[Rfam]
RNA sequence: AAGGUUGACAUUUAUUCAACUUUUUUGUAUAAUAAUUAAGUAUACUUGUUAUACUAUAGCAAUAAAAUUACCUUGUAAUAGGUGUAUUGGACCCGAGGGCAGUACUCGGCGCCUCCACCAUUUUUGUCCAUGGGGGCGAGUCAGGAUCGACAUGCAUAGUAAAGAUGGUAGCUUUGCUCGGUUAGAUACCACCGCUAAGAGUUCAUAAUUUAAAUGCAAACGAUAACGUUAGCUCCGAUUGUGGUAAUGUGGCACUUGCUGCUUAAUUCAGCACAGUAACUUUAUUACUAUGAACACGGUUUGGGAAACACCGGGUAACAGAAGUUUCCCAA
Numbered sequence: 001a002a003g004g005u006u007g008a009c010a011u012u013u014a015u016u017c018a019a020c021u022u023u024u025u026u027g028u029a030u031a032a033u034a035a036u037u038a039a040g041u042a043u044a045c046u047u048g049u050u051a052u053a054c055u056a057u058a059g060c061a062a063u064a065a066a067a068u069u070a071c072c073u074u075g076u077a078a079u080a081g082g083u084g085u086a087u088u089g090g091a092c093c094c095g096a097g098g099g100c101a102g103u104a105c106u107c108g109g110c111g112c113c114u115c116c117a118c119c120a121u122u123u124u125u126g127u128c129c130a131u132g133g134g135g136g137c138g139a140g141u142c143a144g145g146a147u148c149g150a151c152a153u154g155c156a157u158a159g160u161a162a163a164g165a166u167g168g169u170a171g172c173u174u175u176g177c178u179c180g181g182u183u184a185g186a187u188a189c190c191a192c193c194g195c196u197a198a199g200a201g202u203u204c205a206u207a208a209u210u211u212a213a214a215u216g217c218a219a220a221c222g223a224u225a226a227c228g229u230u231a232g233c234u235c236c237g238a239u240u241g242u243g244g245u246a247a248u249g250u251g252g253c254a255c256u257u258g259c260u261g262c263u264u265a266a267u268u269c270a271g272c273a274c275a276g277u278a279a280c281u282u283u284a285u286u287a288c289u290a291u292g293a294a295c296a297c298g299g300u301u302u303g304g305g306a307a308a309c310a311c312c313g314g315g316u317a318a319c320a321g322a323a324g325u326u327u328c329c330c331a332a
Base pairs, nucleotide, nucleotide: 040054041053042052043051044050058178059177060176061175062174068171069170070169071168072167074165083156084155085154088152089151093109094108095107096106097105110138111137112136113135114134115133116132179194180193181192182191185204186203188202189201297313298312299311300310303330304329305328306327307326308325